[Rfam]
RNA sequence: GUGGCAUAAUGAAGGCCUGCGCUGCAAACAGCACGCUGUUAGCACAGGCUCGAUGCUCGGCCAC
Numbered sequence: 001g002u003g004g005c006a007u008a009a010u011g012a013a014g015g016c017c018u019g020c021g022c023u024g025c026a027a028a029c030a031g032c033a034c035g036c037u038g039u040u041a042g043c044a045c046a047g048g049c050u051c052g053a054u055g056c057u058c059g060g061c062c063a064c
Base pairs, nucleotide, nucleotide: 001064002063003062004061005060014050015049016048017047018046019045021043022042023041029038030037031036
RNA: Selenocysteine insertion sequence 1
Organism: Sinocyclocheilus anshuiensis